[Rfam]
RNA: Bacterial large subunit ribosomal RNA, nucleotides 1330 to 1716
Organism: Treponema pallidum
RNA sequence: GAAAAGGAGGGUGAGAUUCCUUCCCGCCGAAAACCUAAGGUUUCCUGGGUGAAGGUCAUCUGCUCAGGGUAAGUCGGCCCCUAAGGCGAGGACGAGGGUCGUAGUCGAUGGGAAUCCGGUUUAUAUUCCGGAACCUCUUGCAAUUUCGAUGGCAGGACGCGUGAGGUGAAGCCCGGCCAAAGAUUGGUAGUUUUGGUCUAAGUAUCCGAGCCGUUUUAAGAGCGAUAGGCAAAUCCGUCGUUCGAGGUAAGGUGCGAGUGCGACUGGAGCGAUGAGCGAAGGGAAGCAGGUGUAGUCAUGGCGACGGGAAAUACUGUCUAAGGUUAGGUUGCAAGAGACCGUACCGCAAACCGACACAGGUAGGUAGGAUGAGUAAUCUAAGGCGCU
Number, nucleotide and partner (000 for none) at each position: 001g000002a000003a000004a000005a000006g024007g023008a022009g021010g020011g019012u000013g000014a000015g000016a000017u000018u000019c011020c010021u009022u008023c007024c006025c385026g384027c383028c382029g000030a000031a000032a000033a365034c364035c363036u362037a000038a000039g345040g344041u000042u000043u000044c068045c067046u066047g065048g064049g063050u000051g000052a000053a061054g060055g000056u000057c000058a000059u000060c054061u053062g000063c049064u048065c047066a046067g045068g044069g000070u000071a000072a000073g000074u000075c341076g340077g339078c000079c000080c111081c110082u000083a000084a000085g106086g105087c104088g000089a102090g000091g100092a099093c098094g000095a000096g000097g000098g093099u092100c091101g000102u089103a000104g087105u086106c085107g000108a000109u000110g081111g080112g000113a000114a000115u132116c131117c130118g129119g128120u000121u000122u000123a000124u000125a000126u000127u000128c119129c118130g117131g116132a115133a000134c000135c337136u336137c335138u334139u333140g332141c331142a330143a329144u328145u327146u323147c322148g000149a000150u000151g318152g317153c316154a315155g314156g000157a000158c000159g000160c303161g302162u301163g000164a000165g297166g296167u295168g000169a000170a000171g291172c290173c289174c000175g287176g197177c196178c195179a194180a193181a192182g000183a000184u000185u000186g000187g000188u000189a000190g000191u000192u181193u180194u179195g178196g177197u176198c260199u000200a000201a000202g255203u254204a253205u252206c000207c000208g000209a000210g248211c247212c246213g000214u000215u000216u000217u000218a000219a000220g243221a242222g241223c240224g239225a238226u237227a000228g236229g235230c000231a000232a000233a000234u000235c229236c228237g226238u225239c224240g223241u222242u221243c220244g000245a000246g212247g211248u210249a000250a000251g000252g205253u204254g203255c202256g000257a000258g000259u000260g198261c000262g000263a000264c282265u281266g000267g000268a000269g000270c000271g000272a000273u000274g000275a000276g000277c000278g000279a000280a000281g265282g264283g000284a000285a000286g000287c175288a000289g173290g172291u171292g000293u000294a000295g167296u166297c165298a000299u000300g000301g162302c161303g160304a000305c000306g000307g000308g000309a000310a000311a000312u000313a000314c155315u154316g153317u152318c151319u000320a000321a000322g147323g146324u000325u000326a000327g145328g144329u143330u142331g141332c140333a139334a138335g137336a136337g135338a000339c077340c076341g075342u000343a000344c040345c039346g000347c000348a000349a000350a000351c360352c359353g000354a000355c000356a000357c000358a000359g352360g351361u000362a036363g035364g034365u033366a000367g379368g378369a377370u376371g000372a000373g000374u000375a000376a370377u369378c368379u367380a000381a000382g028383g027384c026385g025386c000387u000